[Rfam]
RNA sequence: CUAUGGGGAUGGUUUUAAGAAUUGAACUCUUUCUUUCUGAAGGAUUAGUAGAGAAAAUAUAAAACUUCUGAGUAGC
Numbered sequence: 001c002u003a004u005g006g007g008g009a010u011g012g013u014u015u016u017a018a019g020a021a022u023u024g025a026a027c028u029c030u031u032u033c034u035u036u037c038u039g040a041a042g043g044a045u046u047a048g049u050a051g052a053g054a055a056a057a058u059a060u061a062a063a064a065c066u067u068c069u070g071a072g073u074a075g076c
Stems, first nucleotide, its partner, number of pairs: 001075004
Rfam assigns this 76-nucleotide sequence from Hipposideros armiger to the family "Small nucleolar RNA SNORD26". Rfam 15.1 lists 451 matches to the family in 401 species. It scores 82 bits against the family's covariance model. It is annotated as a C/D-box small nucleolar RNA.